The record is a 115-nucleotide RNA sequence, which matches "DUF3268 RNA" in Rfam. The base pairs follow the family's consensus structure, which is taken from published work.
RNA sequence: ACAUAAAGAUUGCGCCCAGGCUCUCGAUACAUCGAAAGGGUGUUAGACUUAUCUGAAGGCAGGUAGGGAAUCGUUACGGACUUAGCGCACAGAGCGGUCCACAAUGGCGUGGCUU
Numbered sequence: 001a002c003a004u005a006a007a008g009a010u011u012g013c014g015c016c017c018a019g020g021c022u023c024u025c026g027a028u029a030c031a032u033c034g035a036a037a038g039g040g041u042g043u044u045a046g047a048c049u050u051a052u053c054u055g056a057a058g059g060c061a062g063g064u065a066g067g068g069a070a071u072c073g074u075u076a077c078g079g080a081c082u083u084a085g086c087g088c089a090c091a092g093a094g095c096g097g098u099c100c101a102c103a104a105u106g107g108c109g110u111g112g113c114u115u
Stems, first nucleotide, its partner, number of pairs: 007115002010112007025073004029043005048067007078100003083097001085095002